A member of the RNA family "S15-Flavobacteria ribosomal protein leader", 67 nucleotides long.
RNA sequence: UAUAUUUGCCGCCUGAUUACCAUAGCGGUAAUCUGUACAUAAAAAUCAUUAAACCAAUAUUGGCAUG
Numbered sequence: 001u002a003u004a005u006u007u008g009c010c011g012c013c014u015g016a017u018u019a020c021c022a023u024a025g026c027g028g029u030a031a032u033c034u035g036u037a038c039a040u041a042a043a044a045a046u047c048a049u050u051a052a053a054c055c056a057a058u059a060u061u062g063g064c065a066u067g
Stems, first nucleotide, its partner, number of pairs: 015033005
Pairs were carried over by alignment from the consensus structure, which is taken from published work.
Rfam's curators put it in the seed alignment.
The family is grouped with related families in Rfam's "Ribosomal Protein S15 Leader clan".